[Rfam]
RNA sequence: UCACCACUCUGGCCUUUUGGCUUAGAUCAAGUGUAGUAUCUGUUCUUAAUAGUUUAACCACUAUUAUGGAGGCACCGCCUCCAUUAUUGGUUAUCUAAUUUUUGUUGCCCUUGUUCUCUGUGCUCUGCUUGCAACACGGAGACAUGAUGACCUUGCUAUUGCAGUAUUGGCUUGUGUCGUCGGGGGAAU
Numbered sequence: 001u002c003a004c005c006a007c008u009c010u011g012g013c014c015u016u017u018u019g020g021c022u023u024a025g026a027u028c029a030a031g032u033g034u035a036g037u038a039u040c041u042g043u044u045c046u047u048a049a050u051a052g053u054u055u056a057a058c059c060a061c062u063a064u065u066a067u068g069g070a071g072g073c074a075c076c077g078c079c080u081c082c083a084u085u086a087u088u089g090g091u092u093a094u095c096u097a098a099u100u101u102u103u104g105u106u107g108c109c110c111u112u113g114u115u116c117u118c119u120g121u122g123c124u125c126u127g128c129u130u131g132c133a134a135c136a137c138g139g140a141g142a143c144a145u146g147a148u149g150a151c152c153u154u155g156c157u158a159u160u161g162c163a164g165u166a167u168u169g170g171c172u173u174g175u176g177u178c179g180u181c182g183g184g185g186g187a188a189u
Stems, first nucleotide, its partner, number of pairs: 008026003011022004047066006067083007115142008126133002145182006152174001155171003

This 189-nucleotide sequence from Fistulina hepatica belongs to the Rfam family "U2 spliceosomal RNA". The match comes from Rfam's covariance-model search (119 bits). A reference for the family is Zwieb (1997), "The uRNA database", Nucleic Acids Res. Rfam describes the family as follows. U2 is a small nuclear RNA (snRNA) component of the spliceosome (involved in pre-mRNA splicing).